[Rfam]
RNA sequence: CGGCAUAGCUAGGGGUGUCUAUGGACUAUAGGCUGAGAAAAACCCUUAGAACCUGAGACUGGGUAAUACCAGCGUAGGGAAGCUGUUUAUCGAGGAA
Numbered sequence: 001c002g003g004c005a006u007a008g009c010u011a012g013g014g015g016u017g018u019c020u021a022u023g024g025a026c027u028a029u030a031g032g033c034u035g036a037g038a039a040a041a042a043c044c045c046u047u048a049g050a051a052c053c054u055g056a057g058a059c060u061g062g063g064u065a066a067u068a069c070c071a072g073c074g075u076a077g078g079g080a081a082g083c084u085g086u087u088u089a090u091c092g093a094g095g096a097a
Base pairs, nucleotide, nucleotide: 006085007084008083009082010081011046012045013044014043016040017033018032019031020030021029052078053077054076055075059072060071061070062069
About this RNA: TPP riboswitch aptamer (THI element): a 97-nucleotide RNA from Cyanobacterium sp. T60_A2020_053. The family's consensus secondary structure is taken from published work.